[Rfam]
RNA sequence: AGCUUCUUGUAUAAACACUGUGCUAAAAUUUAAAAAAAACUAGGAUCCUAUCUUGGGUUUUUUGUAAUAAUGCUAACAGAGUACACACAGGAAAAAGAGUAACUGCACCGGCCCCCAAAGACUGGGGUGGACCUCUUUCUUAAUGUCCAGUGUACUUUGCCUUAAGAUUUGGUGCAGUAUUA
Numbered sequence: 001a002g003c004u005u006c007u008u009g010u011a012u013a014a015a016c017a018c019u020g021u022g023c024u025a026a027a028a029u030u031u032a033a034a035a036a037a038a039a040c041u042a043g044g045a046u047c048c049u050a051u052c053u054u055g056g057g058u059u060u061u062u063u064g065u066a067a068u069a070a071u072g073c074u075a076a077c078a079g080a081g082u083a084c085a086c087a088c089a090g091g092a093a094a095a096a097g098a099g100u101a102a103c104u105g106c107a108c109c110g111g112c113c114c115c116c117a118a119a120g121a122c123u124g125g126g127g128u129g130g131a132c133c134u135c136u137u138u139c140u141u142a143a144u145g146u147c148c149a150g151u152g153u154a155c156u157u158u159g160c161c162u163u164a165a166g167a168u169u170u171g172g173u174g175c176a177g178u179a180u181u182a
Stems, first nucleotide, its partner, number of pairs: 018081002021078002024075002028071003034062002039059001040056007104176008124153001126151001128149004
Shown here is a 182-nucleotide RNA from Jaculus jaculus, a member of the family "Small nucleolar RNA SNORA81". It scores 165 bits against the family's covariance model. Lineage of the source: Eukaryota > Opisthokonta > Tetrapoda > Dipodinae > Jaculus. Rfam classes the family as an H/ACA-box small nucleolar RNA. The literature on the family includes a 2005 paper in Nucleic Acids Res by Gu et al., "A novel experimental approach for systematic identification of box H/ACA snoRNAs from eukaryotes".